[Rfam]
RNA sequence: UGAACUUUGAGUUGUAAGUCACUCUGGAUAAGAGUAUCUGCUAAAUUCCUAUAA
Numbered sequence: 001u002g003a004a005c006u007u008u009g010a011g012u013u014g015u016a017a018g019u020c021a022c023u024c025u026g027g028a029u030a031a032g033a034g035u036a037u038c039u040g041c042u043a044a045a046u047u048c049c050u051a052u053a054a
Base pairs, nucleotide, nucleotide: 013043014041015040016039021035022034023033024032025031

Shown here is a 54-nucleotide RNA sequence from Albula glossodonta, a member of the family "UnaL2 LINE 3' element". Pairs were carried over by alignment from the consensus structure, which is taken from published work. NCBI's taxonomy places the organism under Eukaryota, Vertebrata, Elopocephala, Albulidae, Albula. Gene Ontology term of the family: transposition, RNA-mediated. It is annotated as a cis-regulatory element. The match comes from Rfam's covariance-model search (55 bits).